Shown here is a 74-nucleotide RNA sequence from Saccharopolyspora gloriosae, a member of the family "6C RNA". The match comes from Rfam's covariance-model search (76 bits). The literature on the family includes a 2007 paper in Nucleic Acids Res by Weinberg et al., "Identification of 22 candidate structured RNAs in bacteria using the CMfinder comparative genomics pipeline". The family's RNA type in Rfam is cis-regulatory element. NCBI's taxonomy places the organism under Bacteria, Bacillati, Actinomycetota, Actinomycetes, Saccharopolyspora.
[Rfam]
RNA sequence: UGAGUUCAGCUCGACCCCCCGGAGCUGAACUCUCGACGACCCCCGUCCCUCCCCCCUGACGGGGGUCGUCCUUA
Numbered sequence: 001u002g003a004g005u006u007c008a009g010c011u012c013g014a015c016c017c018c019c020c021g022g023a024g025c026u027g028a029a030c031u032c033u034c035g036a037c038g039a040c041c042c043c044c045g046u047c048c049c050u051c052c053c054c055c056c057u058g059a060c061g062g063g064g065g066u067c068g069u070c071c072u073u074a
Stems, first nucleotide, its partner, number of pairs: 002034002004030009035070013